Rfam assigns this 127-nucleotide RNA from Limosilactobacillus reuteri to the family "PyrR binding site".
About the family: This family represents the PyrR binding site and terminator structure.
It is annotated as a cis-regulatory element.
The match comes from Rfam's covariance-model search (58 bits).
Pairs were carried over by alignment from the consensus structure, which is taken from published work.
Lineage of the source: Bacteria > Bacillati > Lactobacillales > Lactobacillaceae > Limosilactobacillus reuteri.
RNA sequence: UAGACCUUUAAUCGGAGUCCUGUGAGGCUUCAAAGGUGCGGAUAAAUUCUCAAUACUCUUUCCAUAGUUAGGAUUGGGCAGAGGAAGAGACGACUUUGGAGCAGGGAUUCCAAGGUCGUUUUUUCUU
Numbered sequence: 001u002a003g004a005c006c007u008u009u010a011a012u013c014g015g016a017g018u019c020c021u022g023u024g025a026g027g028c029u030u031c032a033a034a035g036g037u038g039c040g041g042a043u044a045a046a047u048u049c050u051c052a053a054u055a056c057u058c059u060u061u062c063c064a065u066a067g068u069u070a071g072g073a074u075u076g077g078g079c080a081g082a083g084g085a086a087g088a089g090a091c092g093a094c095u096u097u098g099g100a101g102c103a104g105g106g107a108u109u110c111c112a113a114g115g116u117c118g119u120u121u122u123u124u125c126u127u
Base pairs, nucleotide, nucleotide: 004037005036006035007034008033009032014031015030016029017028018027019026050084051083054080056078057077058076061073062072063071087122088121089120090119091118092117093116094115095114096113097112098111099110100109